[Rfam]
RNA sequence: AUAAAAGAGCAGUAACCACUUUCUUGUUCUAGCAAGAGUGUUGGUAUUGCUCUUUUAUUUUC
Numbered sequence: 001a002u003a004a005a006a007g008a009g010c011a012g013u014a015a016c017c018a019c020u021u022u023c024u025u026g027u028u029c030u031a032g033c034a035a036g037a038g039u040g041u042u043g044g045u046a047u048u049g050c051u052c053u054u055u056u057a058u059u060u061u062c
Base pairs, nucleotide, nucleotide: 001058002057003056004055005054006053007052008051009050010049011048012047013046014045016043017040018039019038022037023036024035025034026033

Shown here is a 62-nucleotide sequence from Gossypium stocksii, a member of the family "Plastid-psbA-2 3UTR RNA". It scores 66 bits against the family's covariance model. The family's RNA type in Rfam is cis-regulatory element. Rfam describes the family as follows. Plastid psbA-2 is a non-coding RNA (ncRNA) present in plastids. It was identified in inverted repeat sequences in the 3 prime untranslate region (3UTR) of photosystem II quinone-binding protein (psbA). The family's consensus secondary structure was predicted with LocARNA.